[Rfam]
The record is a 139-nucleotide RNA from Prodigiosinella confusarubida, which matches "Manganese Mn2+ riboswitch aptamer (yybP-ykoY)" in Rfam.
Its family is annotated with manganese ion binding in the Gene Ontology.
RNA sequence: UGCGCAGUCAUUGGGGAGUAGCCGAUUCCUGAAGAAUUUAUCAGGAAUGUUCGUGUCAACAUACUCGUUUUCUAAAAACGUGGUGCGAACGGCCAAGCUGGCAGGCGAGACCAUAGACACGGGAUUCACCGUUAUGGUU
Numbered sequence: 001u002g003c004g005c006a007g008u009c010a011u012u013g014g015g016g017a018g019u020a021g022c023c024g025a026u027u028c029c030u031g032a033a034g035a036a037u038u039u040a041u042c043a044g045g046a047a048u049g050u051u052c053g054u055g056u057c058a059a060c061a062u063a064c065u066c067g068u069u070u071u072c073u074a075a076a077a078a079c080g081u082g083g084u085g086c087g088a089a090c091g092g093c094c095a096a097g098c099u100g101g102c103a104g105g106c107g108a109g110a111c112c113a114u115a116g117a118c119a120c121g122g123g124a125u126u127c128a129c130c131g132u133u134a135u136g137g138u139u
Stems, first nucleotide, its partner, number of pairs: 026047007049090010066080005